Shown here is a 118-nucleotide sequence from Parascardovia denticolens, a member of the family "FMN riboswitch aptamer (RFN element)". Taxonomically the source falls in Parascardovia denticolens (Bacteria, Actinomycetes, Bifidobacteriales, Bifidobacteriaceae).
RNA sequence: UCCAUGUUUCAGGGCAGGGUGCGAUUCCCUACUGGCGGUAGAGCCCGCGACCCGCGAAAGCGGCUGACCCGGUGGAAUCCCAGGGCCAACGGUAUAGUCCGGAUGAAAGAAACGAGUA
Numbered sequence: 001u002c003c004a005u006g007u008u009u010c011a012g013g014g015c016a017g018g019g020u021g022c023g024a025u026u027c028c029c030u031a032c033u034g035g036c037g038g039u040a041g042a043g044c045c046c047g048c049g050a051c052c053c054g055c056g057a058a059a060g061c062g063g064c065u066g067a068c069c070c071g072g073u074g075g076a077a078u079c080c081c082a083g084g085g086c087c088a089a090c091g092g093u094a095u096a097g098u099c100c101g102g103a104u105g106a107a108a109g110a111a112a113c114g115a116g117u118a
Stems, first nucleotide, its partner, number of pairs: 003116001005114006017029003031098002033088002035048004043086002052063002068084002071081002090101003
Record summary:
Its family is annotated with FMN binding in the Gene Ontology.